[Rfam]
RNA sequence: UAUCUCGGUGACUCACUCAACCUGGGUGUGAUGUGUUUGCUGUACCAUCACAACCUCCUUGAGUGAGCGACCGGGUGG
Numbered sequence: 001u002a003u004c005u006c007g008g009u010g011a012c013u014c015a016c017u018c019a020a021c022c023u024g025g026g027u028g029u030g031a032u033g034u035g036u037u038u039g040c041u042g043u044a045c046c047a048u049c050a051c052a053a054c055c056u057c058c059u060u061g062a063g064u065g066a067g068c069g070a071c072c073g074g075g076u077g078g
Stems, first nucleotide, its partner, number of pairs: 009069002012067009024055002027052007
mir-67 microRNA precursor family: a 78-nucleotide RNA sequence from Tribolium castaneum.
A search with the family's covariance model found it, with a score of 72 bits.
On this family, see Cao et al., Insect Biochem Mol Biol 2008: "Identification of conserved microRNAs in Bombyx mori (silkworm) and regulation of fibroin L chain production by microRNAs in heterologous system".